[Rfam]
RNA sequence: CUGUUGCCCCCGUGGUGCUGGCGGACCCCCGACCUGGCAGCACCCCGGGGGCUUCCC
Numbered sequence: 001c002u003g004u005u006g007c008c009c010c011c012g013u014g015g016u017g018c019u020g021g022c023g024g025a026c027c028c029c030c031g032a033c034c035u036g037g038c039a040g041c042a043c044c045c046c047g048g049g050g051g052c053u054u055c056c057c
Stems, first nucleotide, its partner, number of pairs: 003055001007051006014044007022036001
Rfam assigns this 57-nucleotide RNA sequence from Actinophytocola xinjiangensis to the family "F6 TB sRNA". The family's consensus secondary structure is taken from published work. Taxonomically the source falls in Actinophytocola (Bacteria, Bacillati, Actinomycetota, Actinomycetes). For this family Rfam cites "Identification of small RNAs in Mycobacterium tuberculosis" (Arnvig and Young, Mol Microbiol, 2009). The match comes from Rfam's covariance-model search (57 bits).